[Rfam]
RNA sequence: CCGGCUCCGGUUCACCCCCUCACCCGGCCCCUGGCGAGUGCCAGGCGACCAGGCAGGGCGGACCCGGCGGCC
Numbered sequence: 001c002c003g004g005c006u007c008c009g010g011u012u013c014a015c016c017c018c019c020u021c022a023c024c025c026g027g028c029c030c031c032u033g034g035c036g037a038g039u040g041c042c043a044g045g046c047g048a049c050c051a052g053g054c055a056g057g058g059c060g061g062a063c064c065c066g067g068c069g070g071c072c
Base pairs, nucleotide, nucleotide: 003072004071005070007067008066009065010064015061016060017058018057019056020055
RNA: L31-Actinobacteria ribosomal protein leader